This 119-nucleotide sequence from Salinisphaera orenii belongs to the Rfam family "Guanidine-I riboswitch aptamer". The organism belongs to Salinisphaera orenii subsp. orenii, within Bacteria.
RNA sequence: GCAAUGGAACGCUAGGGUUCCGGCUGCCGAGAGAUCGGCAGCGACUGGUCCGAGAGCGGUCGACCUCGCCGGCUGACACGGUCUGCGGGGUUACACGGCGGGACAAAAGCCCGGGAGGU
Numbered sequence: 001g002c003a004a005u006g007g008a009a010c011g012c013u014a015g016g017g018u019u020c021c022g023g024c025u026g027c028c029g030a031g032a033g034a035u036c037g038g039c040a041g042c043g044a045c046u047g048g049u050c051c052g053a054g055a056g057c058g059g060u061c062g063a064c065c066u067c068g069c070c071g072g073c074u075g076a077c078a079c080g081g082u083c084u085g086c087g088g089g090g091u092u093a094c095a096c097g098g099c100g101g102g103a104c105a106a107a108a109g110c111c112c113g114g115g116a117g118g119u
Base pairs, nucleotide, nucleotide: 007061008060010058011057012056015051016050020048021047022045023042024041025040026039027038028037062092063091064090065089066088067087068086069085094114096117100112101111102110